[Rfam]
The record is a 90-nucleotide RNA from Plagiorhegma dubium, which matches "Plastid-rps12 3UTR RNA" in Rfam. The family's RNA type in Rfam is cis-regulatory element. The literature on the family includes a 2023 paper in Plant Commun by Richter et al., "Retrograde signaling in plants: A critical review focusing on the GUN pathway and beyond". It is one of the family's seed sequences. Plastid rpl20 is a non-coding RNA (ncRNA) recognised in plastids. It was found in the three prime untranslated region (3UTR) of rps12 gene, its 3UTR location sugest a role in transcript maduration.
RNA sequence: GGUUUCUAUUGGUGCAAAUCCAAUCACCUUAAUUGAAGAUGAUAAGCAAUUCCCCAUUGGUAGCAAAUGGGUUAUCCAUUAAGCGGGUAA
Numbered sequence: 001g002g003u004u005u006c007u008a009u010u011g012g013u014g015c016a017a018a019u020c021c022a023a024u025c026a027c028c029u030u031a032a033u034u035g036a037a038g039a040u041g042a043u044a045a046g047c048a049a050u051u052c053c054c055c056a057u058u059g060g061u062a063g064c065a066a067a068u069g070g071g072u073u074a075u076c077c078a079u080u081a082a083g084c085g086g087g088u089a090a
Stems, first nucleotide, its partner, number of pairs: 009023004053087003056079002059076006